The family of this 89-nucleotide sequence from Centropus unirufus is "Small nucleolar RNA SNORD70". Rfam describes the family as follows. snoRNA HBII-234 belongs to the C/D family of snoRNAs. It is the human orthologue of the mouse MBII-234 and is predicted to guide 2'O-ribose methylation of the small 18S rRNA on position A512. It is hosted, together with HBII-95, by the core C/D box snoRNA protein encoding gene NOP5/NOP58. It is annotated as a C/D-box small nucleolar RNA. The pairing is the family consensus, mapped onto this sequence.
RNA sequence: CAGACUGUUGUCGAUGAUGAAAUGUAGCUAAAGCUGAGAUAAAUGAUGUAACUCAGUUCCUUCGUCACUACCACUGAGACAAUAGAUGG
Number, nucleotide and partner (000 for none) at each position: 001c089002a000003g087004a000005c085006u084007g083008u082009u081010g080011u079012c078013g000014a000015u000016g000017a000018u000019g000020a000021a000022a000023u000024g000025u000026a000027g000028c000029u000030a000031a000032a000033g000034c000035u000036g000037a000038g000039a000040u000041a000042a000043a000044u000045g000046a000047u000048g000049u000050a000051a000052c000053u000054c000055a000056g000057u000058u000059c000060c000061u000062u000063c000064g000065u000066c000067a000068c000069u000070a000071c000072c000073a000074c000075u000076g000077a000078g012079a011080c010081a009082a008083u007084a006085g005086a000087u003088g000089g001